Nitrogen stress-induced RNA 1: a 52-nucleotide RNA sequence from Planktothrix agardhii.
RNA sequence: AAGUAGAUGCACCCUGAUGGUUUCCUUCAACUUAGGUUGGGGGAAUUUUUUU
Numbered sequence: 001a002a003g004u005a006g007a008u009g010c011a012c013c014c015u016g017a018u019g020g021u022u023u024c025c026u027u028c029a030a031c032u033u034a035g036g037u038u039g040g041g042g043g044a045a046u047u048u049u050u051u052u
Stems, first nucleotide, its partner, number of pairs: 003012002023044009

A search with the family's covariance model found it, with a score of 41 bits. Pairs were carried over by alignment from the consensus structure. It is annotated as a small RNA.